A member of the RNA family "6S / SsrS RNA" from Muribacter muris, 181 nucleotides long. NCBI's taxonomy places the organism under Bacteria, Pseudomonadati, Gammaproteobacteria, Pasteurellaceae, Muribacter. The family's consensus secondary structure is taken from published work.
[Rfam]
RNA sequence: UUUCGCCUGAGGUGUACGUUGCUUGUUACGUCCCUGAGCCGAUAUUUAAAACUCCUUGAGUUGAGCUCCUAUUUGUUGGUGAGCAGGCUCGCCUAGCGAGAAGCCUAAAAAUGAAUAUGUUCGACUCCCUUGAACCUUCUGGUUCAAGGACCACAACAGGUAACGGCACUUCGGGUCUUUU
Numbered sequence: 001u002u003u004c005g006c007c008u009g010a011g012g013u014g015u016a017c018g019u020u021g022c023u024u025g026u027u028a029c030g031u032c033c034c035u036g037a038g039c040c041g042a043u044a045u046u047u048a049a050a051a052c053u054c055c056u057u058g059a060g061u062u063g064a065g066c067u068c069c070u071a072u073u074u075g076u077u078g079g080u081g082a083g084c085a086g087g088c089u090c091g092c093c094u095a096g097c098g099a100g101a102a103g104c105c106u107a108a109a110a111a112u113g114a115a116u117a118u119g120u121u122c123g124a125c126u127c128c129c130u131u132g133a134a135c136c137u138u139c140u141g142g143u144u145c146a147a148g149g150a151c152c153a154c155a156a157c158a159g160g161u162a163a164c165g166g167c168a169c170u171u172c173g174g175g176u177c178u179u180u181u
Stems, first nucleotide, its partner, number of pairs: 005176011017165003030151004035146006058127003062123005071116007083104002088100005